[Rfam]
The record is a 213-nucleotide RNA from Phyllobacterium myrsinacearum, which matches "Group II catalytic intron D1-D4-6" in Rfam.
The base pairs follow the family's consensus structure.
A search with the family's covariance model found it, with a score of 126 bits.
About the family: Group II introns are found in rRNA, tRNA and mRNA of organelles in fungi, plants and protists, and also in mRNA in bacteria.
Gene Ontology term of the family: Group II intron splicing.
For this family Rfam cites "Control of branch-site choice by a group II intron" (Chu et al., EMBO J, 2001).
RNA sequence: UGAUACCGAUGUGGUAGCGAUCCACAUUGGCCCCGAGUUAUGCGCGUUCAAUCGUGAGGCUGAAGGUGAAGUGUUGACAGGGGAGCGUGCAGGCCAGCCGUUGAACCGCGAAACUGGCGCUUUUCAGGUGCCGACGUUCUUCUUGUGGCGGAAGGCAAUAUGAGCAGUUGCGAUAACGCAAGCGGCUGUUCAACUUGGCGUGGUCAACAUCCU
Numbered sequence: 001u002g003a004u005a006c007c008g009a010u011g012u013g014g015u016a017g018c019g020a021u022c023c024a025c026a027u028u029g030g031c032c033c034c035g036a037g038u039u040a041u042g043c044g045c046g047u048u049c050a051a052u053c054g055u056g057a058g059g060c061u062g063a064a065g066g067u068g069a070a071g072u073g074u075u076g077a078c079a080g081g082g083g084a085g086c087g088u089g090c091a092g093g094c095c096a097g098c099c100g101u102u103g104a105a106c107c108g109c110g111a112a113a114c115u116g117g118c119g120c121u122u123u124u125c126a127g128g129u130g131c132c133g134a135c136g137u138u139c140u141u142c143u144u145g146u147g148g149c150g151g152a153a154g155g156c157a158a159u160a161u162g163a164g165c166a167g168u169u170g171c172g173a174u175a176a177c178g179c180a181a182g183c184g185g186c187u188g189u190u191c192a193a194c195u196u197g198g199c200g201u202g203g204u205c206a207a208c209a210u211c212c213u
Stems, first nucleotide, its partner, number of pairs: 004029002008025001011023001013021001015181001017179002031083004037078004041073002043068003047064004052059002102207001103205001105204006124198006130156003135150004161192011